[Rfam]
A member of the RNA family "Alphaproteobacterial ar15" from Aquamicrobium sp. LC103, 115 nucleotides long. Taxonomically the source falls in Aquamicrobium (Bacteria, Pseudomonadati, Hyphomicrobiales, Phyllobacteriaceae). The match comes from Rfam's covariance-model search (48 bits). For this family Rfam cites "Small RNA-mediated control of the Agrobacterium tumefaciens GABA binding protein" (Wilms et al., Mol Microbiol, 2011). Its family is annotated with protein binding in the Gene Ontology.
RNA sequence: AUCUCCCGGGCGCGUUCCUCCUCCCAUUGGCGCCCGGUGAGUGUUCCCCUCUGGAGGUUUUGCCUAACGGCACUUCCAACAAACUCAGCCGGGUCUUUCCAGAUCCGGCUUUUUU
Numbered sequence: 001a002u003c004u005c006c007c008g009g010g011c012g013c014g015u016u017c018c019u020c021c022u023c024c025c026a027u028u029g030g031c032g033c034c035c036g037g038u039g040a041g042u043g044u045u046c047c048c049c050u051c052u053g054g055a056g057g058u059u060u061u062g063c064c065u066a067a068c069g070g071c072a073c074u075u076c077c078a079a080c081a082a083a084c085u086c087a088g089c090c091g092g093g094u095c096u097u098u099c100c101a102g103a104u105c106c107g108g109c110u111u112u113u114u115u
Stems, first nucleotide, its partner, number of pairs: 001042001003041003007037001009035001010033004052078007087110006094103003